[Rfam]
RNA sequence: GUUGGUUAUGGUGAUAUGCGUCCUGUUGGUAUAUUUGGUAAAAUUGUUGGUUCAAUGUGUGCUAUUGCUGGUGUAUUAACAAUAGCAUUACCUGUACCUGUUAUUGUAUCAAAU
Numbered sequence: 001g002u003u004g005g006u007u008a009u010g011g012u013g014a015u016a017u018g019c020g021u022c023c024u025g026u027u028g029g030u031a032u033a034u035u036u037g038g039u040a041a042a043a044u045u046g047u048u049g050g051u052u053c054a055a056u057g058u059g060u061g062c063u064a065u066u067g068c069u070g071g072u073g074u075a076u077u078a079a080c081a082a083u084a085g086c087a088u089u090a091c092c093u094g095u096a097c098c099u100g101u102u103a104u105u106g107u108a109u110c111a112a113a114u
Base pairs, nucleotide, nucleotide: 001114002113005110007108008107009106010105011104013102014101015100016099018097020095021094037077038076039075040074049063050062051061

Shown here is a 114-nucleotide sequence from Rotaria sp. Silwood1, a member of the family "Potassium channel RNA editing signal".
It scores 91 bits against the family's covariance model.
Pairs were carried over by alignment from the consensus structure, which is taken from published work.